[Rfam]
RNA sequence: GGGUGCCUUUUCCACUUUCAGUAAAGGCAGGUUUUGCGUUGGUCGGGCCGCCGCG
Numbered sequence: 001g002g003g004u005g006c007c008u009u010u011u012c013c014a015c016u017u018u019c020a021g022u023a024a025a026g027g028c029a030g031g032u033u034u035u036g037c038g039u040u041g042g043u044c045g046g047g048c049c050g051c052c053g054c055g
Stems, first nucleotide, its partner, number of pairs: 005028006012021001037055003041052003

This 55-nucleotide RNA from Ancylobacter pratisalsi belongs to the Rfam family "nhaA-I RNA". The source organism's lineage runs through Bacteria, Pseudomonadati, Pseudomonadota, Xanthobacteraceae and Ancylobacter. Acidobacteria, Alphaproteobacteria, Betaproteobacteria and Gammaproteobacteria, Verrucomicrobia, cand. division NC10. The family's consensus secondary structure is taken from published work. A search with the family's covariance model found it, with a score of 50 bits.